[Rfam]
RNA sequence: CGAGCUGGCCGGGCGGCCGCGUCGGCACCCCCGGGUGCCGCCGAGGAAAGUCCGGACUCCACAGGGCAGGGUGGUGGGUAACACCCACCCGGGGUGACCCGCGGGACAGUGCCACAGAAAGCAGACCGCCUGCGCGCUCCGGCGCGCUGGUAAGGGUGAAACGGUGGUGUAAGAGACCACCAGCGCCCUGGGCGACCAGGGCGGCUAGGUAAACCCCACCCGGAGCAAGGUCAGACAGGGAACGUUCGAGGGCUGCCCGCCCGAGUUCCCGGGUAGACCGCACGAGACCGCCGGCAACGGCGGUCCUAGAUGGAUGGUCGCCGCUCCCGGUCCGCCGGGAGGCACAGGAUCCGGCUUAUAGGCCAGCUCGUCCU
Dot-bracket structure: ((((((((((((((((((.((.((((((......)))))).))....[[[.[[[[[((((...[[[[.((((((((((.....)))))(((((....)))).)((...(((((............(((((.((((((....)))))).)))..)).......((((((.......)))))).(((((((((....)))))))).)..)))..)))))))))))))...((((.....((((((......((((.]]]]))))..)))))).....))))......((((((((....))))))))..........)))))))...........................]]]]]]]].).))))))))))....
Numbered sequence: 001c002g003a004g005c006u007g008g009c010c011g012g013g014c015g016g017c018c019g020c021g022u023c024g025g026c027a028c029c030c031c032c033g034g035g036u037g038c039c040g041c042c043g044a045g046g047a048a049a050g051u052c053c054g055g056a057c058u059c060c061a062c063a064g065g066g067c068a069g070g071g072u073g074g075u076g077g078g079u080a081a082c083a084c085c086c087a088c089c090c091g092g093g094g095u096g097a098c099c100c101g102c103g104g105g106a107c108a109g110u111g112c113c114a115c116a117g118a119a120a121g122c123a124g125a126c127c128g129c130c131u132g133c134g135c136g137c138u139c140c141g142g143c144g145c146g147c148u149g150g151u152a153a154g155g156g157u158g159a160a161a162c163g164g165u166g167g168u169g170u171a172a173g174a175g176a177c178c179a180c181c182a183g184c185g186c187c188c189u190g191g192g193c194g195a196c197c198a199g200g201g202c203g204g205c206u207a208g209g210u211a212a213a214c215c216c217c218a219c220c221c222g223g224a225g226c227a228a229g230g231u232c233a234g235a236c237a238g239g240g241a242a243c244g245u246u247c248g249a250g251g252g253c254u255g256c257c258c259g260c261c262c263g264a265g266u267u268c269c270c271g272g273g274u275a276g277a278c279c280g281c282a283c284g285a286g287a288c289c290g291c292c293g294g295c296a297a298c299g300g301c302g303g304u305c306c307u308a309g310a311u312g313g314a315u316g317g318u319c320g321c322c323g324c325u326c327c328c329g330g331u332c333c334g335c336c337g338g339g340a341g342g343c344a345c346a347g348g349a350u351c352c353g354g355c356u357u358a359u360a361g362g363c364c365a366g367c368u369c370g371u372c373c374u
Stems, first nucleotide, its partner, number of pairs: 001370010011359001012322007020043002023040006048357003052354005057225004064258004069221005074088005089103001090101004104216002109214002111210003126155002128151003132147006163181006183205001184203008229279004238270006250262004286305008